Source information:
This 83-nucleotide sequence from Drosophila melanogaster belongs to the Rfam family "mir-184 microRNA precursor family". For this family Rfam cites "The developmental miRNA profiles of zebrafish as determined by small RNA cloning" (Chen et al., Genes Dev, 2005). NCBI's taxonomy places the organism under Eukaryota, Opisthokonta, Pterygota, Eumetabola, Sophophora. Rfam links the family to the GO terms RISC complex and gene silencing by miRNA.
[Rfam]
RNA sequence: GUGCAUUCGUACCCUUAUCAUUCUCUCGCCCCGUGUGCACUUAAAGACAACUGGACGGAGAACUGAUAAGGGCUCGUAUCACC
Numbered sequence: 001g002u003g004c005a006u007u008c009g010u011a012c013c014c015u016u017a018u019c020a021u022u023c024u025c026u027c028g029c030c031c032c033g034u035g036u037g038c039a040c041u042u043a044a045a046g047a048c049a050a051c052u053g054g055a056c057g058g059a060g061a062a063c064u065g066a067u068a069a070g071g072g073c074u075c076g077u078a079u080c081a082c083c
Stems, first nucleotide, its partner, number of pairs: 012072009021062006030054002